[Rfam]
RNA sequence: CACCAGGUUGAUUCUGCCUGACGUAGGUGCUAGCCUCUAAGAUUUAGCCAUGCAUGCUCUGUGAACCGAAUGGGGAACGGCGGACGGCUCAGUAAUGUUGCGAUGAUCUGCUCUAGUUGUGUAAGAUAACCGCGGAAACCUGUGGCUAAGAGACUAGAAUGAGACGCAACCCUAUCAGUUUGUUGGUAGUGUAACGGACUACCAAGACUAUGACGGGUGACGGGAAAUCAGUGUUUGAUUCCGGAGAGGGAGCCUGAGAGAUGGCUCCCACGUCCAAGGAUGGCAGCAGGCGCGAAAAUUGUCCACUCUUUGUUGAGGAGACAGUUAUGAGGCGUGAUUGUAAGAGCGAAGAGUAAACAUCUUUGUGUAAUGCAACUAGAGGGCAAGUUUUGGUGCCAGCAGCCGCGGUAACUCCAACUCUAGAAGUGCCUAUUGUGGAUGCUG
Numbered sequence: 001c002a003c004c005a006g007g008u009u010g011a012u013u014c015u016g017c018c019u020g021a022c023g024u025a026g027g028u029g030c031u032a033g034c035c036u037c038u039a040a041g042a043u044u045u046a047g048c049c050a051u052g053c054a055u056g057c058u059c060u061g062u063g064a065a066c067c068g069a070a071u072g073g074g075g076a077a078c079g080g081c082g083g084a085c086g087g088c089u090c091a092g093u094a095a096u097g098u099u100g101c102g103a104u105g106a107u108c109u110g111c112u113c114u115a116g117u118u119g120u121g122u123a124a125g126a127u128a129a130c131c132g133c134g135g136a137a138a139c140c141u142g143u144g145g146c147u148a149a150g151a152g153a154c155u156a157g158a159a160u161g162a163g164a165c166g167c168a169a170c171c172c173u174a175u176c177a178g179u180u181u182g183u184u185g186g187u188a189g190u191g192u193a194a195c196g197g198a199c200u201a202c203c204a205a206g207a208c209u210a211u212g213a214c215g216g217g218u219g220a221c222g223g224g225a226a227a228u229c230a231g232u233g234u235u236u237g238a239u240u241c242c243g244g245a246g247a248g249g250g251a252g253c254c255u256g257a258g259a260g261a262u263g264g265c266u267c268c269c270a271c272g273u274c275c276a277a278g279g280a281u282g283g284c285a286g287c288a289g290g291c292g293c294g295a296a297a298a299u300u301g302u303c304c305a306c307u308c309u310u311u312g313u314u315g316a317g318g319a320g321a322c323a324g325u326u327a328u329g330a331g332g333c334g335u336g337a338u339u340g341u342a343a344g345a346g347c348g349a350a351g352a353g354u355a356a357a358c359a360u361c362u363u364u365g366u367g368u369a370a371u372g373c374a375a376c377u378a379g380a381g382g383g384c385a386a387g388u389u390u391u392g393g394u395g396c397c398a399g400c401a402g403c404c405g406c407g408g409u410a411a412c413u414c415c416a417a418c419u420c421u422a423g424a425a426g427u428g429c430c431u432a433u434u435g436u437g438g439a440u441g442c443u444g
Stems, first nucleotide, its partner, number of pairs: 004020005023433009033333005039326002041293001047291003051288003056081002060079003066073002088246003097170006104163001107162002112158007130145006171217003178208003183205008221243004225236004248269006271282004299323001301322003307318004346366006376423006390417004399406002

Description: Shown here is a 444-nucleotide part of an RNA from Paranucleospora theridion, a member of the family "Microsporidia small subunit ribosomal RNA". The family's consensus secondary structure is taken from published work. On this family, see Cannone et al., BMC Bioinformatics 2002: "The comparative RNA web (CRW) site: an online database of comparative sequence and structure information for ribosomal, intron, and other RNAs". The source organism's lineage runs through Eukaryota, Opisthokonta, Microsporidia, Enterocytozoonidae and Paranucleospora. Clan: SSU clan. Rfam 15.1 lists 1,035 matches to the family in 436 species.